[Rfam]
Nucleotides: 101
Base pairs, nucleotide, nucleotide: 006089007088008087009086010085011050012049013048014047016044017037018036019035021033022032023031024030056081057080058079059078062075063074064073065072
Number, partner (000 for none) and nucleotide at each position: 001000c002000g003000g004000u005000c006089g007088a008087a009086g010085c011050g012049g013048g014047g015000g016044u017037a018036u019035c020000g021033c022032c023031g024030g025000c026000c027000u028000g029000g030024c031023c032022g033021g034000g035019g036018a037017u038000u039000g040000a041000g042000a043000c044016a045000g046000a047014c048013c049012c050011u051000u052000c053000g054000a055000a056081c057080c058079u059078g060000a061000u062075c063074c064073g065072g066000u067000u068000g069000a070000g071000a072065c073064c074063g075062g076000c077000g078059u079058a080057g081056g082000g083000a084000a085010g086009c087008u088007u089006c090000g091000c092000g093000g094000a095000a096000c097000g098000a099000a100000c101000c
TPP riboswitch aptamer (THI element): a 101-nucleotide RNA sequence from Pseudoxanthomonas helianthi. Taxonomically the source falls in Pseudoxanthomonas (Bacteria, Pseudomonadota, Gammaproteobacteria, Lysobacterales). Vitamin B(1) in its active form thiamin pyrophosphate (TPP) is an essential coenzyme that is synthesised by coupling of pyrimidine and thiazole moieties in bacteria.